[Rfam]
RNA sequence: GCCACGAAUGCGGGUGGAACUACAGCCUACGAAGCUCGUGGUCGCGGGUUCGAGUCCCGCCGGUCCCAUGUCAGGGGGGCCGUAGCUCAGCGGUAGAGCACGAAAACGUUUCACCCAUCCUUGUCGUGGUGGA
Numbered sequence: 001g002c003c004a005c006g007a008a009u010g011c012g013g014g015u016g017g018a019a020c021u022a023c024a025g026c027c028u029a030c031g032a033a034g035c036u037c038g039u040g041g042u043c044g045c046g047g048g049u050u051c052g053a054g055u056c057c058c059g060c061c062g063g064u065c066c067c068a069u070g071u072c073a074g075g076g077g078g079g080c081c082g083u084a085g086c087u088c089a090g091c092g093g094u095a096g097a098g099c100a101c102g103a104a105a106a107c108g109u110u111u112c113a114c115c116c117a118u119c120c121u122u123g124u125c126g127u128g129g130u131g132g133a
Stems, first nucleotide, its partner, number of pairs: 002129006013115007037102003044060005051093001061082006085099004
Background
Shown here is a 133-nucleotide RNA from Rhizobacter gummiphilus, a member of the family "Y RNA-like". The family's RNA type in Rfam is small RNA. Rfam 15.1 lists 124 matches to the family in 99 species. The base pairs follow the family's consensus structure, which is taken from published work. Rfam describes the family as follows. In Deinococcus radiodurans Rsr is tethered via Y RNA to the exoribonuclease PNPase and channels single-stranded RNA into the PNPase cavity. Rsr and Y RNA enhance degradation of structured RNAs by PNPase. This role could be conserved, as Rsr and ncRNAs called YrlA and YrlB (Y RNA like) also associate with PNPase in an evolutionary distant bacterium Salmonella Typhimurium.